[Rfam]
RNA sequence: ACUGAAUAUACAGCGCCAGAACAGGAAACUGUUGACGAGGACGGAUGGUUAUCGAAUUUUCGGCGGAUGCCAUCCCGGAUAAAGCGAUUCGAUAGCUGAUGAACAAAACCACCUGGGCAACUGGGUGAACAAAACGCAUCAGCACCGCAUAA
Numbered sequence: 001a002c003u004g005a006a007u008a009u010a011c012a013g014c015g016c017c018a019g020a021a022c023a024g025g026a027a028a029c030u031g032u033u034g035a036c037g038a039g040g041a042c043g044g045a046u047g048g049u050u051a052u053c054g055a056a057u058u059u060u061c062g063g064c065g066g067a068u069g070c071c072a073u074c075c076c077g078g079a080u081a082a083a084g085c086g087a088u089u090c091g092a093u094a095g096c097u098g099a100u101g102a103a104c105a106a107a108a109c110c111a112c113c114u115g116g117g118c119a120a121c122u123g124g125g126u127g128a129a130c131a132a133a134a135c136g137c138a139u140c141a142g143c144a145c146c147g148c149a150u151a152a
Stems, first nucleotide, its partner, number of pairs: 020033005043075005052063004076091005096142006110127007
RNA: glmS glucosamine-6-phosphate activated ribozyme aptamer